[Rfam]
RNA sequence: CCUUCAUGAUGACAUCCACACACGUCUUACGCCUUGGUUCAAUGCCAGAACCUGAAAAGGUGAACCCACUGGUGUUACCUUGGCGAUAAGGGGAAAAACGUUGGGGUUGCCAACAGUCUGAAAGGA
Numbered sequence: 001c002c003u004u005c006a007u008g009a010u011g012a013c014a015u016c017c018a019c020a021c022a023c024g025u026c027u028u029a030c031g032c033c034u035u036g037g038u039u040c041a042a043u044g045c046c047a048g049a050a051c052c053u054g055a056a057a058a059g060g061u062g063a064a065c066c067c068a069c070u071g072g073u074g075u076u077a078c079c080u081u082g083g084c085g086a087u088a089a090g091g092g093g094a095a096a097a098a099c100g101u102u103g104g105g106g107u108u109g110c111c112a113a114c115a116g117u118c119u120g121a122a123a124g125g126a
Base pairs, nucleotide, nucleotide: 001125002124003123004122